[Rfam]
Annotation: Rfam assigns this 116-nucleotide RNA from Erysipelothrix inopinata to the family "FMN riboswitch aptamer (RFN element)".
RNA sequence: GGUGUACUUCAGGGCAGGGUGAAAUUCCCGAUCGGCGGUAAACCCCGCGAACCACAAAGGUUGAAUCGUUGUAAUUACGAUGGCGACAGUUAAAGUCUGGAUGAAAGAAGUUUUUU
Dot-bracket structure: ...(.(((((......(((.......))).[[((((((....[[))))..(((.....)))...(((((.......)))))]])).(((.....]]))).......))))).)...
Numbered sequence: 001g002g003u004g005u006a007c008u009u010c011a012g013g014g015c016a017g018g019g020u021g022a023a024a025u026u027c028c029c030g031a032u033c034g035g036c037g038g039u040a041a042a043c044c045c046c047g048c049g050a051a052c053c054a055c056a057a058a059g060g061u062u063g064a065a066u067c068g069u070u071g072u073a074a075u076u077a078c079g080a081u082g083g084c085g086a087c088a089g090u091u092a093a094a095g096u097c098u099g100g101a102u103g104a105a106a107g108a109a110g111u112u113u114u115u116u
Stems, first nucleotide, its partner, number of pairs: 004113001006111005017029003031096002033085002035048004043083002051061003065081005087099003
NCBI's taxonomy places the organism under Bacteria, Bacillati, Bacillota, Erysipelotrichales, Erysipelothrix.